[Rfam]
RNA sequence: GUGCAGGGCGUUUAGGGUUCCACUGGCAAAACCGCAUCAUUGCGGGUCAGGUUCGGUCCGAGAAAUGCCACCCGGCGGGCCAAUUCCCGCGGGGCACACGGCGGGGCAAAAUCCCGGGAGGA
Numbered sequence: 001g002u003g004c005a006g007g008g009c010g011u012u013u014a015g016g017g018u019u020c021c022a023c024u025g026g027c028a029a030a031a032c033c034g035c036a037u038c039a040u041u042g043c044g045g046g047u048c049a050g051g052u053u054c055g056g057u058c059c060g061a062g063a064a065a066u067g068c069c070a071c072c073c074g075g076c077g078g079g080c081c082a083a084u085u086c087c088c089g090c091g092g093g094g095c096a097c098a099c100g101g102c103g104g105g106g107c108a109a110a111a112u113c114c115c116g117g118g119a120g121g122a
Stems, first nucleotide, its partner, number of pairs: 007069006015059002020056002022053001023050005071094003075090005097117001099120001103115003
Dot-bracket structure: ......((((((..((...((((((((..................)))))..).)).))....)))))).(((.(((((......))))).)))..(.[...(((.......))).)..]..
Guanidine-I riboswitch aptamer: a 122-nucleotide sequence from Pseudooceanicola atlanticus. From the family's description: This family represents a conserved RNA structure found upstream of the ykkC and yxkD genes in Bacillus subtilis and related genes in other bacteria. The function of this family is unclear although it has been suggested that it may function to switch on efflux pumps and detoxification systems in response to harmful environmental molecules. Lineage of the source: Bacteria > Pseudomonadati > Pseudomonadota > Rhodobacterales > Pseudooceanicola.